[Rfam]
RNA: Selenocysteine insertion sequence 1
Organism: Machaerirhynchus nigripectus
RNA sequence: CACGCUCCAUGACGGGAAUCGCCGAAACGCCCCCGGCACCGGGCGCUUCCCUGACCCUGCGUG
Numbered sequence: 001c002a003c004g005c006u007c008c009a010u011g012a013c014g015g016g017a018a019u020c021g022c023c024g025a026a027a028c029g030c031c032c033c034c035g036g037c038a039c040c041g042g043g044c045g046c047u048u049c050c051c052u053g054a055c056c057c058u059g060c061g062u063g
Stems, first nucleotide, its partner, number of pairs: 001063005014051005020045004029037003